[Rfam]
RNA sequence: UAACAUUAAAAUUAAAUUUAUGUACAAAAUGUGAAGACACAAAGCCACGGGUCUAUGAUGAUAAGAGUUAUGAUAGCCUGGCUGCUGGA
Numbered sequence: 001u002a003a004c005a006u007u008a009a010a011a012u013u014a015a016a017u018u019u020a021u022g023u024a025c026a027a028a029a030u031g032u033g034a035a036g037a038c039a040c041a042a043a044g045c046c047a048c049g050g051g052u053c054u055a056u057g058a059u060g061a062u063a064a065g066a067g068u069u070a071u072g073a074u075a076g077c078c079u080g081g082c083u084g085c086u087g088g089a
Stems, first nucleotide, its partner, number of pairs: 013039001017035006043083004049078002051074003058068002
A member of the RNA family "c-di-GMP-I riboswitch aptamer" from Anaerobacillus alkaliphilus, 89 nucleotides long.
The base pairs follow the family's consensus structure, which is taken from published work.
A reference for the family is Weinberg et al. (2007), "Identification of 22 candidate structured RNAs in bacteria using the CMfinder comparative genomics pipeline", Nucleic Acids Res.
Rfam's curators write: GEMM was predicted in a large-scale screen for bacterial structured RNA regulatory elements.